Overview: The family of this 72-nucleotide RNA from Jacana jacana is "Small nucleolar RNA SNORD18". The family has 16 seed sequences and 2,622 matches in Rfam 15.1. Rfam classes the family as a C/D-box small nucleolar RNA. The literature on the family includes a 1993 paper in Nucleic Acids Res by Prislei et al., "Two different snoRNAs are encoded in introns of amphibian and human L1 ribosomal protein genes". A search with the family's covariance model found it, with a score of 66 bits. The organism belongs to Jacana, within Eukaryota.
RNA sequence: CUGAGAUGAUGAGAUUCCACUUCAUUGGUCCGUGUUUCUGAAACACAGUGAUGUUGUGGAAGUUCUGAUUGG
Number, nucleotide and partner (000 for none) at each position: 001c072002u071003g070004a069005g000006a000007u000008g000009a000010u000011g000012a000013g000014a000015u000016u000017c000018c000019a000020c000021u000022u000023c000024a000025u000026u000027g000028g000029u000030c000031c000032g000033u000034g000035u000036u000037u000038c000039u000040g000041a000042a000043a000044c000045a000046c000047a000048g000049u000050g000051a000052u000053g000054u000055u000056g000057u000058g000059g000060a000061a000062g000063u000064u000065c000066u000067g000068a000069u004070u003071g002072g001